[Rfam]
RNA sequence: CCUAGGACUUCCGUCCUAGGCUAUGAUAAUUCAUCCCUUCGGGAUU
Dot-bracket structure: ((((((((....))))))))............(((((...))))).
The record is a 46-nucleotide sequence from Soonwooa buanensis, which matches "Acido-Lenti-1 RNA" in Rfam. It scores 56 bits against the family's covariance model.